[Rfam]
RNA sequence: UACAAUUCCAUAGUAUUCACUCAUAUAAUAGCAGGGAUAUGGCCUGCAAGUUUCUACCGAUUUGCCGUUAACAAAUCGACUAUGGGUGGCAAAUGACUGGAA
Numbered sequence: 001u002a003c004a005a006u007u008c009c010a011u012a013g014u015a016u017u018c019a020c021u022c023a024u025a026u027a028a029u030a031g032c033a034g035g036g037a038u039a040u041g042g043c044c045u046g047c048a049a050g051u052u053u054c055u056a057c058c059g060a061u062u063u064g065c066c067g068u069u070a071a072c073a074a075a076u077c078g079a080c081u082a083u084g085g086g087u088g089g090c091a092a093a094u095g096a097c098u099g100g101a102a
Stems, first nucleotide, its partner, number of pairs: 018088008029049001031047005058078007
The family of this 102-nucleotide sequence from Siminovitchia fortis is "Purine riboswitch aptamer". Rfam describes the family as follows. Riboswitches are metabolite binding domains within certain messenger RNAs that serve as precision sensors for their corresponding targets. A search with the family's covariance model found it, with a score of 85 bits.